The family of this 97-nucleotide RNA sequence from Salinisphaera orenii is "Bacterial small signal recognition particle RNA".
Clan: SRP clan.
NCBI's taxonomy places the organism under Bacteria, Pseudomonadota, Salinisphaerales, Salinisphaeraceae, Salinisphaera orenii subsp. orenii.
Rfam classes the family as a non-coding RNA gene.
[Rfam]
RNA sequence: UGUCGGUGCCCCCGCGACGACAUGCCGCAAAUCCCGUCAGGCCCGGAAGGGAGCAGCGGUAGCGGCGGACUCGGGCGCCGGGGUGUCGCUGGUGCGG
Numbered sequence: 001u002g003u004c005g006g007u008g009c010c011c012c013c014g015c016g017a018c019g020a021c022a023u024g025c026c027g028c029a030a031a032u033c034c035c036g037u038c039a040g041g042c043c044c045g046g047a048a049g050g051g052a053g054c055a056g057c058g059g060u061a062g063c064g065g066c067g068g069a070c071u072c073g074g075g076c077g078c079c080g081g082g083g084u085g086u087c088g089c090u091g092g093u094g095c096g097g
Stems, first nucleotide, its partner, number of pairs: 004091005010083005015075001018073003023067006034059004042051003
Background:
A search with the family's covariance model found it, with a score of 66 bits. Pairs were carried over by alignment from the consensus structure, which is taken from published work.